[Rfam]
RNA sequence: UCCCCGCUCCUCCUCCCUGAGCGGGGAAGUCCCGGAACCAAAAUUCCGGGACGUUGUUCGGCCCCGGACUCUCUCCCCUUGUUUCCGGGGCUUUUUUU
Numbered sequence: 001u002c003c004c005c006g007c008u009c010c011u012c013c014u015c016c017c018u019g020a021g022c023g024g025g026g027a028a029g030u031c032c033c034g035g036a037a038c039c040a041a042a043a044u045u046c047c048g049g050g051a052c053g054u055u056g057u058u059c060g061g062c063c064c065c066g067g068a069c070u071c072u073c074u075c076c077c078c079u080u081g082u083u084u085c086c087g088g089g090g091c092u093u094u095u096u097u098u
Stems, first nucleotide, its partner, number of pairs: 003025006029052009061091008